[Rfam]
RNA sequence: GCCUCUGAGGAUGAUCACAAAAAAAACUUUCGUUCUUCUGAGAUAUUCCAUGCGGAAAAAAAUUGGAGACCUGAACUGAAGAGGC
Numbered sequence: 001g002c003c004u005c006u007g008a009g010g011a012u013g014a015u016c017a018c019a020a021a022a023a024a025a026a027c028u029u030u031c032g033u034u035c036u037u038c039u040g041a042g043a044u045a046u047u048c049c050a051u052g053c054g055g056a057a058a059a060a061a062a063u064u065g066g067a068g069a070c071c072u073g074a075a076c077u078g079a080a081g082a083g084g085c
Stems, first nucleotide, its partner, number of pairs: 003083004
A member of the RNA family "Small nucleolar RNA Z159/U59" from Morus notabilis, 85 nucleotides long.
The family's RNA type in Rfam is C/D-box small nucleolar RNA.
The source organism's lineage runs through Eukaryota, Tracheophyta, Spermatophyta, Moraceae and Morus.
Its family is annotated with RNA processing and nucleolus in the Gene Ontology.
A search with the family's covariance model found it, with a score of 69 bits.